[Rfam]
RNA sequence: AUACGUCUUCAGGGCAGGGUGGAAGUCCCUACCGGCGGUAGGGUCGCGGUGGAGCAUGCGUCACGCCACGAGCGACCGAGCCCGCGAGCGCCUGCGCGUUCCCGCGCAGGGACAGCAGAUCCGGUUCAAGGCCGGAGCCGACGGUCAUAGUCCGGAUGAGAGAAGAUGUGA
Number, nucleotide and partner (000 for none) at each position: 001a000002u000003a169004c168005g167006u166007c165008u164009u163010c162011a000012g000013g000014g000015c000016a000017g029018g028019g027020u000021g000022g000023a000024a000025g000026u000027c019028c018029c017030u000031a151032c150033c140034g139035g085036c084037g083038g082039u000040a000041g000042g000043g000044u000045c000046g000047c000048g000049g000050u000051g000052g000053a000054g000055c000056a000057u000058g000059c000060g000061u000062c000063a000064c000065g000066c000067c000068a000069c000070g000071a000072g000073c000074g000075a000076c000077c000078g000079a000080g000081c000082c038083c037084g036085c035086g000087a000088g116089c115090g000091c000092c000093u000094g000095c000096g000097c000098g000099u000100u000101c000102c000103c000104g000105c000106g000107c000108a000109g000110g000111g000112a000113c000114a000115g089116c088117a000118g000119a000120u136121c135122c134123g133124g132125u000126u000127c000128a000129a000130g000131g000132c124133c123134g122135g121136a120137g000138c000139c034140g033141a000142c154143g153144g152145u000146c000147a000148u000149a000150g032151u031152c144153c143154g142155g000156a000157u000158g000159a000160g000161a000162g010163a009164a008165g007166a006167u005168g004169u003170g000171a000
RNA: FMN riboswitch aptamer (RFN element)